[Rfam]
RNA sequence: AAUGCUCGGAGAUUAGGAGGGUGAGAAGCCUCGUCCAGGGUUCGACUAAAACGUCGGGAACGUUUUAGAACGCCUUUAGGCGGCCCGAAGGGUGGAGGGCAGGAGCCCGACAUAAUCCCUCUCUCUCCGCCA
Numbered sequence: 001a002a003u004g005c006u007c008g009g010a011g012a013u014u015a016g017g018a019g020g021g022u023g024a025g026a027a028g029c030c031u032c033g034u035c036c037a038g039g040g041u042u043c044g045a046c047u048a049a050a051a052c053g054u055c056g057g058g059a060a061c062g063u064u065u066u067a068g069a070a071c072g073c074c075u076u077u078a079g080g081c082g083g084c085c086c087g088a089a090g091g092g093u094g095g096a097g098g099g100c101a102g103g104a105g106c107c108c109g110a111c112a113u114a115a116u117c118c119c120u121c122u123c124u125c126u127c128c129g130c131c132a
Base pairs, nucleotide, nucleotide: 016122017121018120019119020118021117022115032094033093035092036091041089042088043087044086048064049063071082072081073080074079
Dot-bracket structure: ...............(((((((.........((.((....((((...((.............))......((((....))))...)))).))))....................).))))))..........

Background
Shown here is a 132-nucleotide RNA from Psychrosphaera ytuae, a member of the family "RtT RNA". Rfam 15.1 lists 651 matches to the family in 204 species. From the family's description: This family represents a bacterial cis-regulatory element known as RtT RNA. The exact function of RtT is unknown although it is thought that it may be involved in changing the cellular response in relation to amino acid starvation. The match comes from Rfam's covariance-model search (57 bits). Rfam links the family to the GO term cellular response to amino acid starvation. Rfam classes the family as a cis-regulatory element.